[Rfam]
RNA sequence: AGCAGGGAAGAGAAAGAAGCGGGGUCUAAGAGGUGUAGGAAUGGGAACAUGAAGAAACUCUACCGUAAUGCCUCAUCUACUAGUUGAGGGGAUAAAUGGUGUGAUGUUUCUGAUGCCUCCCAUUCCUAUGGAUCUUAGGUUCUCCUUCCUCUUACUUUUUGCU
Numbered sequence: 001a002g003c004a005g006g007g008a009a010g011a012g013a014a015a016g017a018a019g020c021g022g023g024g025u026c027u028a029a030g031a032g033g034u035g036u037a038g039g040a041a042u043g044g045g046a047a048c049a050u051g052a053a054g055a056a057a058c059u060c061u062a063c064c065g066u067a068a069u070g071c072c073u074c075a076u077c078u079a080c081u082a083g084u085u086g087a088g089g090g091g092a093u094a095a096a097u098g099g100u101g102u103g104a105u106g107u108u109u110c111u112g113a114u115g116c117c118u119c120c121c122a123u124u125c126c127u128a129u130g131g132a133u134c135u136u137a138g139g140u141u142c143u144c145c146u147u148c149c150u151c152u153u154a155c156u157u158u159u160u161g162c163u
Stems, first nucleotide, its partner, number of pairs: 010153004016147002021144003025139007034130001036128011048115003052111001054110005
Rfam assigns this 163-nucleotide RNA from Hordeum vulgare to the family "MIR2118 microRNA precursor family". The base pairs follow the family's consensus structure, which was predicted with RNAalifold. Taxonomically the source falls in Hordeum vulgare (Eukaryota, Spermatophyta, Mesangiospermae, commelinids). Gene Ontology terms of the family: miRNA-mediated post-transcriptional gene silencing and RISC complex.